[Rfam]
RNA sequence: UGGCGCCCAACGCGAAGCUUGGAUACGAGGGAAUUACGUGAGGAAGAGGGCGCAAAAGGCCGACGAUUCAAGUAAAAGAAAAAUCCCUUUCGCCGCCGCGGGAGCCUGCUGCCUCGGAAUUGUGUGAGUUACGCGCCCGAAAUGGGACAAGAAUUAAGCCAGCAUCAGAUUUACGUAGGACAGUUAAAAGAGGCUUUAAAGACACGGGGAAAAAAAAUAGCAAAAAAUAAAAAUAAAAAAUAAAAAAAAGACACGGGGAGUGAAGGUUAAAAGUGGUGAUUUAUUUAAAUUCUUUGAUUUUGUAAAAGACACUUGCCCUU
Numbered sequence: 001u002g003g004c005g006c007c008c009a010a011c012g013c014g015a016a017g018c019u020u021g022g023a024u025a026c027g028a029g030g031g032a033a034u035u036a037c038g039u040g041a042g043g044a045a046g047a048g049g050g051c052g053c054a055a056a057a058g059g060c061c062g063a064c065g066a067u068u069c070a071a072g073u074a075a076a077a078g079a080a081a082a083a084u085c086c087c088u089u090u091c092g093c094c095g096c097c098g099c100g101g102g103a104g105c106c107u108g109c110u111g112c113c114u115c116g117g118a119a120u121u122g123u124g125u126g127a128g129u130u131a132c133g134c135g136c137c138c139g140a141a142a143u144g145g146g147a148c149a150a151g152a153a154u155u156a157a158g159c160c161a162g163c164a165u166c167a168g169a170u171u172u173a174c175g176u177a178g179g180a181c182a183g184u185u186a187a188a189a190g191a192g193g194c195u196u197u198a199a200a201g202a203c204a205c206g207g208g209g210a211a212a213a214a215a216a217a218u219a220g221c222a223a224a225a226a227a228u229a230a231a232a233a234u235a236a237a238a239a240a241u242a243a244a245a246a247a248a249a250g251a252c253a254c255g256g257g258g259a260g261u262g263a264a265g266g267u268u269a270a271a272a273g274u275g276g277u278g279a280u281u282u283a284u285u286u287a288a289a290u291u292c293u294u295u296g297a298u299u300u301u302g303u304a305a306a307a308g309a310c311a312c313u314u315g316c317c318c319u320u
Base pairs, nucleotide, nucleotide: 006031007030008029012026014024037049039047087124093117094116098112099111100110101109133148136146137145138144139143155198156197157196158194159193160192205296206295207294208293209292210291211290215282216281217280218279220277305320306319308317310315

The record is a 320-nucleotide sequence from Piliocolobus tephrosceles, which matches "Mason-Pfizer monkey virus packaging signal" in Rfam. Gene Ontology term of the family: viral genome packaging. The match comes from Rfam's covariance-model search (197 bits). This family represents a group of sequences that are related to the Mason-Pfizer monkey virus (MPMV) packaging signal.